[Rfam]
RNA sequence: AUGACGGUUGUGGGAGAGCGCAAAGCAAAAAGCCACCGAAGGAGCAAGUUCCAAAAAGACCCUUGGAACCAAUCUCUCAGGUAGAUAGAACCACAACUGGACG
Numbered sequence: 001a002u003g004a005c006g007g008u009u010g011u012g013g014g015a016g017a018g019c020g021c022a023a024a025g026c027a028a029a030a031a032g033c034c035a036c037c038g039a040a041g042g043a044g045c046a047a048g049u050u051c052c053a054a055a056a057a058g059a060c061c062c063u064u065g066g067a068a069c070c071a072a073u074c075u076c077u078c079a080g081g082u083a084g085a086u087a088g089a090a091c092c093a094c095a096a097c098u099g100g101a102c103g
Base pairs, nucleotide, nucleotide: 006098007097008096009095010094011093012092013091020033021032035082036081037080038078039077042076043075044074048069049068050067051066052065053064054063

The record is a 103-nucleotide RNA from Bacillus benzoevorans, which matches "Glycine riboswitch aptamer" in Rfam. Gene Ontology term of the family: glycine biosynthetic process.